PreQ1 (pre queuosine) riboswitch aptamer: a 45-nucleotide RNA sequence from Granulicatella sp. zg-ZJ. From the family's description: This family is a bacterial riboswitch that binds to the metabolite preQ1, an intermediate in the biosynthesis of the modified nucleoside queuosine from GTP. One example of this riboswitch is located in the leader of the Bacillus subtilis ykvJKLM (queCDEF) operon which encodes four genes necessary for queuosine production. PreQ1 binding to the riboswitch aptamer is thought to induce premature transcription termination within the leader to down-regulate expression of these genes. The organism belongs to Granulicatella, within Bacteria. The pairing is the family consensus, mapped onto this sequence.
RNA sequence: AUCAACGUGGUUCGCAACCAUCCCACGAAAAAAAACUAGGAGGAU
Number, nucleotide and partner (000 for none) at each position: 001a000002u000003c000004a000005a000006c027007g026008u025009g024010g023011u000012u000013c000014g000015c000016a037017a000018c000019c000020a000021u000022c000023c010024c009025a008026c007027g006028a000029a000030a000031a000032a000033a000034a000035a000036c000037u016038a000039g000040g000041a000042g000043g000044a000045u000